[Rfam]
Description:
This 60-nucleotide RNA sequence from Eschrichtius robustus belongs to the Rfam family "U7 small nuclear RNA". Animal histone pre-mRNAs are spliced by a different mechanism than nuclear pre-mRNAs and self-splicing introns. Lineage of the source: Eukaryota > Euteleostomi > Boreoeutheria > Artiodactyla > Eschrichtius. Pairs were carried over by alignment from the consensus structure, which was predicted with PFOLD. Rfam 15.1 lists 10,439 matches to the family in 569 species.
RNA sequence: UAGUGUUACAGCUCUUUUAAAAUUUGUCUCAGGUUUUCCGGUCCACACCGGAAAACCUCC
Numbered sequence: 001u002a003g004u005g006u007u008a009c010a011g012c013u014c015u016u017u018u019a020a021a022a023u024u025u026g027u028c029u030c031a032g033g034u035u036u037u038c039c040g041g042u043c044c045a046c047a048c049c050g051g052a053a054a055a056c057c058u059c060c
Stems, first nucleotide, its partner, number of pairs: 032057011